[Rfam]
RNA sequence: AGUCGCCGAAGGCCGAGACCGAGCCGACGGCGAGCCGGGGACCCACCGCAGUACUGGGGUGAAUCCUGCUCCGAGCUCCGCUCGGGGCGGGUAGGGCUGCUUCCCGCCCGAAUCCGUCAGCUAACUCGGUAGGCGGCCAUGGAAGAGCGC
Numbered sequence: 001a002g003u004c005g006c007c008g009a010a011g012g013c014c015g016a017g018a019c020c021g022a023g024c025c026g027a028c029g030g031c032g033a034g035c036c037g038g039g040g041a042c043c044c045a046c047c048g049c050a051g052u053a054c055u056g057g058g059g060u061g062a063a064u065c066c067u068g069c070u071c072c073g074a075g076c077u078c079c080g081c082u083c084g085g086g087g088c089g090g091g092u093a094g095g096g097c098u099g100c101u102u103c104c105c106g107c108c109c110g111a112a113u114c115c116g117u118c119a120g121c122u123a124a125c126u127c128g129g130u131a132g133g134c135g136g137c138c139a140u141g142g143a144a145g146a147g148c149g150c
Base pairs, nucleotide, nucleotide: 004135005134006133007132034130035129036128037127038126039125044056045055057115058114059113065091066090067089068088069087070086071085072084073083074082075081076080094109095108096107097106